[Rfam]
RNA: Mammalian CPEB3 ribozyme
RNA sequence: GGUCACAAGUUUGAGGCCACAGAAAAAGUGCUCACUGUGUGGCCCUGUCAAAUUCCAACAAAUCUGUGAAUUCUGCU
Numbered sequence: 001g002g003u004c005a006c007a008a009g010u011u012u013g014a015g016g017c018c019a020c021a022g023a024a025a026a027a028g029u030g031c032u033c034a035c036u037g038u039g040u041g042g043c044c045c046u047g048u049c050a051a052a053u054u055c056c057a058a059c060a061a062a063u064c065u066g067u068g069a070a071u072u073c074u075g076c077u
Stems, first nucleotide, its partner, number of pairs: 013045001015044004021077002024074001026072002028040003049066002052063003